[Rfam]
RNA sequence: ACGCCCUGCUCGUGAUCGUCUUCUCAACCUUCACGGCAGGGGGCACGACGAAGGGCCCUCGCGAGCACCCGCUCACGGGGGCCCUUC
Numbered sequence: 001a002c003g004c005c006c007u008g009c010u011c012g013u014g015a016u017c018g019u020c021u022u023c024u025c026a027a028c029c030u031u032c033a034c035g036g037c038a039g040g041g042g043g044c045a046c047g048a049c050g051a052a053g054g055g056c057c058c059u060c061g062c063g064a065g066c067a068c069c070c071g072c073u074c075a076c077g078g079g080g081g082c083c084c085u086u087c
Stems, first nucleotide, its partner, number of pairs: 002042001004041007012034004018028002050087012063074003

A member of the RNA family "sodF sRNA" from Streptomyces fructofermentans, 87 nucleotides long.
Taxonomically the source falls in Streptomyces (Bacteria, Bacillati, Actinomycetota, Actinomycetes).
Its family is annotated with negative regulation of translation, mRNA binding and regulation of mRNA stability in the Gene Ontology.